The record is a 93-nucleotide sequence from Branchiostoma floridae, which matches "mir-2060 microRNA precursor family" in Rfam. The base pairs follow the family's consensus structure, which was predicted with RNAalifold. It scores 90 bits against the family's covariance model.
[Rfam]
RNA sequence: GUUACCUGUGUGUGGAUGGUGUUCAGCACCAGGGACAGGUGUGUUUACCUGUGUGUGGAUUGUGUUCAGCAUUAAGGACAGGUGAGUUACCUG
Numbered sequence: 001g002u003u004a005c006c007u008g009u010g011u012g013u014g015g016a017u018g019g020u021g022u023u024c025a026g027c028a029c030c031a032g033g034g035a036c037a038g039g040u041g042u043g044u045u046u047a048c049c050u051g052u053g054u055g056u057g058g059a060u061u062g063u064g065u066u067c068a069g070c071a072u073u074a075a076g077g078a079c080a081g082g083u084g085a086g087u088u089a090c091c092u093g
Base pairs, nucleotide, nucleotide: 003084004083005082006081007080008079009078017074018073019072020071021070022069023068025066026065027064028063029062031060033054035052036051037050038049039048040047041046